The family of this 87-nucleotide sequence from Chelydra serpentina is "Small nucleolar RNA SNORD103/SNORD85".
RNA sequence: UCUGGCAGUGAUGACACACUUGCCCUCCCUGAGAGAGCUGCUCAGUAAUGAGAACCUCACCAUGUGCUCAGAUGAGCUUAAGCCAGG
Numbered sequence: 001u002c003u004g005g006c007a008g009u010g011a012u013g014a015c016a017c018a019c020u021u022g023c024c025c026u027c028c029c030u031g032a033g034a035g036a037g038c039u040g041c042u043c044a045g046u047a048a049u050g051a052g053a054a055c056c057u058c059a060c061c062a063u064g065u066g067c068u069c070a071g072a073u074g075a076g077c078u079u080a081a082g083c084c085a086g087g
Base pairs, nucleotide, nucleotide: 001087002086003085004084005083006082
About this RNA: Lineage of the source: Eukaryota > Opisthokonta > Testudinata > Testudines > Chelydra. Gene Ontology terms of the family: nucleolus and RNA processing. A reference for the family is Huttenhofer et al. (2001), "RNomics: an experimental approach that identifies 201 candidates for novel, small, non-messenger RNAs in mouse", EMBO J. Pairs were carried over by alignment from the consensus structure.